RNA sequence: UCGUUCUUGUGUUAUUCCCUGGAUGUCUUACCCUAAUUCAGAGAUUGUCAAACAGAACGAAGAGCAUAUUCCAGGCAACUAAUCACUCCAUAAUGAUGCGUCUAAUUUAUCCAGGACUACACCAUUACUAAAUGAUUGCCAUAUCU
Numbered sequence: 001u002c003g004u005u006c007u008u009g010u011g012u013u014a015u016u017c018c019c020u021g022g023a024u025g026u027c028u029u030a031c032c033c034u035a036a037u038u039c040a041g042a043g044a045u046u047g048u049c050a051a052a053c054a055g056a057a058c059g060a061a062g063a064g065c066a067u068a069u070u071c072c073a074g075g076c077a078a079c080u081a082a083u084c085a086c087u088c089c090a091u092a093a094u095g096a097u098g099c100g101u102c103u104a105a106u107u108u109a110u111c112c113a114g115g116a117c118u119a120c121a122c123c124a125u126u127a128c129u130a131a132a133u134g135a136u137u138g139c140c141a142u143a144u145c146u
Stems, first nucleotide, its partner, number of pairs: 002059006010050002016044002019041004092126004100117003

Rfam assigns this 146-nucleotide RNA from Drosophila ananassae to the family "Small nucleolar RNA psi18S-1377". It scores 112 bits against the family's covariance model. Rfam's curators write: psi18S-1377 is a member of the H/ACA class of snoRNA. This family is responsible for guiding the modification of uridines 1377 and 1279 to pseudouridine in Drosophila 18S rRNA. By type it is an H/ACA-box small nucleolar RNA.